[Rfam]
RNA sequence: AUGCAUGACUGUUGUGGUUGCUCUCUCACUGAUAGAGAGCAGAGAUAUGAAGCCAUGCUAGAAUAACAUGCUUUGAGUUAUCAGGGCCACCAAUCUCUCAAGAACAGAUUGUGUUGGUAGUAUAAAACUCACACAUUC
Numbered sequence: 001a002u003g004c005a006u007g008a009c010u011g012u013u014g015u016g017g018u019u020g021c022u023c024u025c026u027c028a029c030u031g032a033u034a035g036a037g038a039g040c041a042g043a044g045a046u047a048u049g050a051a052g053c054c055a056u057g058c059u060a061g062a063a064u065a066a067c068a069u070g071c072u073u074u075g076a077g078u079u080a081u082c083a084g085g086g087c088c089a090c091c092a093a094u095c096u097c098u099c100a101a102g103a104a105c106a107g108a109u110u111g112u113g114u115u116g117g118u119a120g121u122a123u124a125a126a127a128c129u130c131a132c133a134c135a136u137u138c
Base pairs, nucleotide, nucleotide: 003058004057005056006055007054018042019041020040021039022038023037024036025035074131075130076129077128086118087117090113091111092110093109094108095107096106
Dot-bracket structure: ..(((((..........((((((((.........))))))))...........)))))...............((((........((..(((((((.........)))))).)...)).........)))).......
Small nucleolar RNA U109: a 138-nucleotide RNA from Cyprinus carpio. Its family is annotated with RNA processing and nucleolus in the Gene Ontology. It scores 52 bits against the family's covariance model. By type it is an H/ACA-box small nucleolar RNA. The literature on the family includes a 2003 paper in EMBO J by Richard et al., "A common sequence motif determines the Cajal body-specific localization of box H/ACA scaRNAs".